[Rfam]
RNA: U1A polyadenylation inhibition element (PIE)
RNA sequence: UUUCCCAGCAUUGUACCCAGGGUCUCUGCAGACAUUGCACCUGGAGCUGGCCCCGUCCCAAAUCAACCCCAAA
Numbered sequence: 001u002u003u004c005c006c007a008g009c010a011u012u013g014u015a016c017c018c019a020g021g022g023u024c025u026c027u028g029c030a031g032a033c034a035u036u037g038c039a040c041c042u043g044g045a046g047c048u049g050g051c052c053c054c055g056u057c058c059c060a061a062a063u064c065a066a067c068c069c070c071a072a073a
Stems, first nucleotide, its partner, number of pairs: 005050005017044004022033004